This 172-nucleotide RNA sequence from Saccharibacillus brassicae belongs to the Rfam family "c-di-AMP riboswitch aptamer (ydaO/yuaA leader)".
RNA sequence: CAGAUUAGACUGCUGAAUUUUUCGAUAAAAACGGGGGAACCGAUCGAGACGCCGCGCAGGCGCUCAUGGGGUGAAGCCUGACGCUCUCCGGUACGCCGGAUCUGCGGCAGGCGGGGCGACUCUUGCGUCCCAAUCCGUCAGCUAACCUCGUAAGCAGAGCAGGAGAGGUGAC
Numbered sequence: 001c002a003g004a005u006u007a008g009a010c011u012g013c014u015g016a017a018u019u020u021u022u023c024g025a026u027a028a029a030a031a032c033g034g035g036g037g038a039a040c041c042g043a044u045c046g047a048g049a050c051g052c053c054g055c056g057c058a059g060g061c062g063c064u065c066a067u068g069g070g071g072u073g074a075a076g077c078c079u080g081a082c083g084c085u086c087u088c089c090g091g092u093a094c095g096c097c098g099g100a101u102c103u104g105c106g107g108c109a110g111g112c113g114g115g116g117c118g119a120c121u122c123u124u125g126c127g128u129c130c131c132a133a134u135c136c137g138u139c140a141g142c143u144a145a146c147c148u149c150g151u152a153a154g155c156a157g158a159g160c161a162g163g164a165g166a167g168g169u170g171a172c
Base pairs, nucleotide, nucleotide: 011156012155013154014153018030019029020028031151032150033149034148035147036146041068042067069136070135071134077111078110079109080108114130115129116128117127
About the family: This family represents a conserved RNA structure found upstream of the ydaO and yuaA genes in Bacillus subtilis and related genes in other bacteria. NCBI's taxonomy places the organism under Bacteria, Bacillota, Caryophanales, Paenibacillaceae, Saccharibacillus.